[Rfam]
RNA sequence: AUGCAUGAUGACUUACAUGGAAUCUCGUUCGGCUGAUGACUUGCUGUUGAGACUCGGAAGUCUGAUUCUC
Number, nucleotide and partner (000 for none) at each position: 001a000002u000003g000004c000005a000006u000007g000008a000009u000010g000011a000012c000013u000014u000015a000016c000017a000018u000019g000020g000021a000022a000023u052024c051025u050026c049027g048028u000029u000030c046031g045032g044033c043034u000035g000036a000037u000038g000039a000040c000041u000042u000043g033044c032045u031046g030047u000048u027049g026050a025051g024052a023053c000054u000055c000056g000057g000058a000059a000060g000061u000062c000063u000064g000065a000066u000067u000068c000069u000070c000

The record is a 70-nucleotide RNA sequence from Neogale vison, which matches "Small nucleolar RNA SNORD30" in Rfam.
For this family Rfam cites "A small nucleolar RNA requirement for site-specific ribose methylation of rRNA in Xenopus" (Tycowski et al., Proc Natl Acad Sci U S A, 1996).
Rfam classes the family as a C/D-box small nucleolar RNA.
The source organism's lineage runs through Eukaryota, Craniata, Dipnotetrapodomorpha, Boreoeutheria and Neogale.
It scores 92 bits against the family's covariance model.
Pairs were carried over by alignment from the consensus structure.